[Rfam]
RNA sequence: GUGCAUUCAGUAGGAAUUGAACGUACGAAUUCGACAAUUAUGAAUUGAGCUAUUUAAGCAUUUAGCCAUGGAUGC
Numbered sequence: 001g002u003g004c005a006u007u008c009a010g011u012a013g014g015a016a017u018u019g020a021a022c023g024u025a026c027g028a029a030u031u032c033g034a035c036a037a038u039u040a041u042g043a044a045u046u047g048a049g050c051u052a053u054u055u056a057a058g059c060a061u062u063u064a065g066c067c068a069u070g071g072a073u074g075c
Stems, first nucleotide, its partner, number of pairs: 003075006010026003014022001040069003045065005
Dot-bracket structure: ..((((((.(((.(.......).))).............(((..(((((...........))))).)))))))))

The family of this 75-nucleotide RNA from Solanum tuberosum is "Plastid-ycf2 5UTR RNA". The organism belongs to Solanum, within Eukaryota. Rfam's curators write: Plastid ycf2 is a non-coding RNA (ncRNA) recognised in plastids. It was found in the prime untranslated region (5UTR) of ycf2 genes, it presents a tRNA-like motif which suggests it can be involved in mRNA maturation, particularly involved in defining the precise 5' end of the transcript. The base pairs follow the family's consensus structure, which was predicted with LocARNA. A reference for the family is Richter et al. (2023), "Retrograde signaling in plants: A critical review focusing on the GUN pathway and beyond", Plant Commun. By type it is a cis-regulatory element.